CyVA-1 RNA: a 75-nucleotide RNA sequence from Rubidibacter lacunae. The organism belongs to Rubidibacter lacunae, within Bacteria. Rfam's curators put it in the seed alignment.
Nucleotides: 075
Stems, first nucleotide, its partner, number of pairs: 001075002004072003009033004039069007
Number, partner (000 for none) and nucleotide at each position: 001075u002074c003000g004072c005071c006070c007000u008000a009033u010032c011031g012030g013000g014000a015000c016000u017000u018000u019000u020000g021000c022000u023000g024000u025000u026000u027000g028000a029000c030012u031011c032010g033009a034000u035000c036000g037000a038000g039069u040068u041067c042066c043065u044064c045063c046000g047000a048000a049000g050000g051000a052000g053000a054000a055000c056000g057000g058000c059000g060000c061000c062000a063045g064044g065043a066042g067041g068040a069039a070006g071005g072004g073000a074002g075001a